Annotation:
Small nucleolar RNA SNORD101: a 77-nucleotide sequence from Oryzias melastigma. The match comes from Rfam's covariance-model search (63 bits).
RNA sequence: GCAUGAAUGAUGACUUUACAUUCUUUUGUCGGAUACCCCUUCACUCUUCAAUGAGUGAUAUCCUCUUUCUGACAUGC
Numbered sequence: 001g002c003a004u005g006a007a008u009g010a011u012g013a014c015u016u017u018a019c020a021u022u023c024u025u026u027u028g029u030c031g032g033a034u035a036c037c038c039c040u041u042c043a044c045u046c047u048u049c050a051a052u053g054a055g056u057g058a059u060a061u062c063c064u065c066u067u068u069c070u071g072a073c074a075u076g077c
Stems, first nucleotide, its partner, number of pairs: 001077005
The family has 26 seed sequences and 658 matches in Rfam 15.1. The family's consensus secondary structure was predicted with PFOLD.